[Rfam]
RNA sequence: UUCUUGUUACUUUCGGUUAUCUAGCUUUAUGAAGAAUGAAUAACACUCAUACAGCUAGAUAACCAAAGAUAACAGCCA
Numbered sequence: 001u002u003c004u005u006g007u008u009a010c011u012u013u014c015g016g017u018u019a020u021c022u023a024g025c026u027u028u029a030u031g032a033a034g035a036a037u038g039a040a041u042a043a044c045a046c047u048c049a050u051a052c053a054g055c056u057a058g059a060u061a062a063c064c065a066a067a068g069a070u071a072a073c074a075g076c077c078a
Base pairs, nucleotide, nucleotide: 001078004075005074007072008071009070011068012067013066015064016063017062018061019060020059021058022057023056024055025054026053028051029050030049031048032047

Description:
Shown here is a 78-nucleotide sequence from Cyprinus carpio, a member of the family "mir-9/mir-79 microRNA precursor family". The match comes from Rfam's covariance-model search (62 bits). The source organism's lineage runs through Eukaryota, Opisthokonta, Gnathostomata, Clupeocephala and Cyprinus carpio. Rfam 15.1 lists 5,647 matches to the family in 934 species. For this family Rfam cites "An abundant class of tiny RNAs with probable regulatory roles in Caenorhabditis elegans" (Lau et al., Science, 2001). The family's consensus secondary structure was predicted with RNAalifold.